[Rfam]
Background: Rfam assigns this 128-nucleotide RNA sequence from Streptomyces hygroscopicus to the family "Streptomyces-metH RNA". Taxonomically the source falls in Streptomyces hygroscopicus subsp. jinggangensis (Bacteria, Kitasatosporales, Streptomycetaceae, Streptomyces hygroscopicus). It is annotated as a small RNA.
RNA sequence: CGCGUCCGUCUCGUGGACGCCGCUGCCCAUCCAAGCCCACUCCGGUUACUCUGGCGCCGUGCGGCAGUCCGGCCGGUCCGGGCAGCCGCAUAGCCGACAGCCGUCGCAUCCCAGGGAGCCCUUACAUG
Numbered sequence: 001c002g003c004g005u006c007c008g009u010c011u012c013g014u015g016g017a018c019g020c021c022g023c024u025g026c027c028c029a030u031c032c033a034a035g036c037c038c039a040c041u042c043c044g045g046u047u048a049c050u051c052u053g054g055c056g057c058c059g060u061g062c063g064g065c066a067g068u069c070c071g072g073c074c075g076g077u078c079c080g081g082g083c084a085g086c087c088g089c090a091u092a093g094c095c096g097a098c099a100g101c102c103g104u105c106g107c108a109u110c111c112c113a114g115g116g117a118g119c120c121c122u123u124a125c126a127u128g
Base pairs, nucleotide, nucleotide: 060090061089062088063087067083068082069081070080071079072078093107094106096105097104098103